Plastid-psbA-1 3UTR RNA: a 118-nucleotide RNA from Menispermum dauricum.
[Rfam]
RNA sequence: GUUGAAGCUCCAUCUACAAAUGGCUAAGAUUUCGGUCUUAGUGUAUACGAGUCGUUGAAGUUGAAGGAGCAAUACCCAAUUUUUUGUUCUGUCAGGGGGGCGGGUAUUGCUCCUUCGG
Numbered sequence: 001g002u003u004g005a006a007g008c009u010c011c012a013u014c015u016a017c018a019a020a021u022g023g024c025u026a027a028g029a030u031u032u033c034g035g036u037c038u039u040a041g042u043g044u045a046u047a048c049g050a051g052u053c054g055u056u057g058a059a060g061u062u063g064a065a066g067g068a069g070c071a072a073u074a075c076c077c078a079a080u081u082u083u084u085u086g087u088u089c090u091g092u093c094a095g096g097g098g099g100g101c102g103g104g105u106a107u108u109g110c111u112c113c114u115u116c117g118g
Base pairs, nucleotide, nucleotide: 010023011022012021013020063116064115065114066113067112068111069110070109071108072107073106074105075104077102081098082097083096084095085094

Rfam describes the family as follows. Plastid psbA-1 is a non-coding RNA (ncRNA) present in plastids. It was identified in inverted repeat sequences in the 3 prime untranslate region (3UTR) of photosystem II quinone-binding protein (psbA). It is one of the family's seed sequences.